RNA sequence: CCGGGACGUCGCAGGCUCCCGGCGCCCCCGGGCGAAGACGGUGUCCCGUCCAAGUUCUGC
Numbered sequence: 001c002c003g004g005g006a007c008g009u010c011g012c013a014g015g016c017u018c019c020c021g022g023c024g025c026c027c028c029c030g031g032g033c034g035a036a037g038a039c040g041g042u043g044u045c046c047c048g049u050c051c052a053a054g055u056u057c058u059g060c
Stems, first nucleotide, its partner, number of pairs: 001022006011060005037050005